[Rfam]
RNA sequence: AAAUACAAGGUUCUCCGAAGCCUUCAUGCCUAAGAUCCAUAAAAAUUGUGAUGAUGGGAUGUUGGCCAGGAAUGACAGGUCUGUCAGUUCCUCAGGGUAGAUAGGGAAACGUAUCUGCCUCCCGCGUAUUUGGAAAGGAGAGCAGCACCUUUGCUU
Numbered sequence: 001a002a003a004u005a006c007a008a009g010g011u012u013c014u015c016c017g018a019a020g021c022c023u024u025c026a027u028g029c030c031u032a033a034g035a036u037c038c039a040u041a042a043a044a045a046u047u048g049u050g051a052u053g054a055u056g057g058g059a060u061g062u063u064g065g066c067c068a069g070g071a072a073u074g075a076c077a078g079g080u081c082u083g084u085c086a087g088u089u090c091c092u093c094a095g096g097g098u099a100g101a102u103a104g105g106g107a108a109a110c111g112u113a114u115c116u117g118c119c120u121c122c123c124g125c126g127u128a129u130u131u132g133g134a135a136a137g138g139a140g141a142g143c144a145g146c147a148c149c150u151u152u153g154c155u156u
Stems, first nucleotide, its partner, number of pairs: 003150001011142006020066003025061003029057002035052003068092005095120009105110001121133002
Molybdenum/Tungsten riboswitch aptamer (Moco RNA motif): a 156-nucleotide RNA sequence from Dorea longicatena. Pairs were carried over by alignment from the consensus structure, which is taken from published work. The organism belongs to Dorea longicatena, within Bacteria.